RNA sequence: UAAUAAAGAUUGCUCCGAGCCUUUCAUCCUAAAGCAUUGCCAUGGAUAAAGGCCGAUAGGGUAUAAACGGAAACGUUUUUGCCUCCAUGUUGGGAAGGAGUUAAUACAAUUAAAAU
Numbered sequence: 001u002a003a004u005a006a007a008g009a010u011u012g013c014u015c016c017g018a019g020c021c022u023u024u025c026a027u028c029c030u031a032a033a034g035c036a037u038u039g040c041c042a043u044g045g046a047u048a049a050a051g052g053c054c055g056a057u058a059g060g061g062u063a064u065a066a067a068c069g070g071a072a073a074c075g076u077u078u079u080u081g082c083c084u085c086c087a088u089g090u091u092g093g094g095a096a097g098g099a100g101u102u103a104a105u106a107c108a109a110u111u112a113a114a115a116u
Base pairs, nucleotide, nucleotide: 003110004109012101013100014099015098016097019053020052021051022050023049024048027046028045029044034040035039059084060083061082062081063080065078066077067076068075069074085093086092
Molybdenum/Tungsten riboswitch aptamer (Moco RNA motif): a 116-nucleotide sequence from Acetobacterium bakii. Rfam 15.1 lists 1,248 matches to the family in 836 species. Gene Ontology terms of the family: regulation of gene expression, molybdenum ion binding and tungstate binding. The literature on the family includes a 2008 paper in Mol Microbiol by Regulski et al., "in molybdenum cofactor and tungsten cofactor metabolism". A search with the family's covariance model found it, with a score of 71 bits. The family's consensus secondary structure is taken from published work.